The record is a 99-nucleotide sequence from Erwinia tracheiphila, which matches "TPP riboswitch aptamer (THI element)" in Rfam.
Taxonomically the source falls in Erwinia (Bacteria, Pseudomonadati, Pseudomonadota, Enterobacterales).
It scores 76 bits against the family's covariance model.
Gene Ontology term of the family: thiamine pyrophosphate binding.
[Rfam]
RNA sequence: UCGUUCUCAACGGGGUGCGCUGAAGAAAAUGGCGCUGAGAAAGACCCGUCGAACCUGAUCCGGCUCAUACCGGCGUAGGGAUUUGAGAGUGUUAUCCGC
Dot-bracket structure: .....(((((((((.((((((.........)))))......)..)))).....((((..((((......))))..))))...)))))............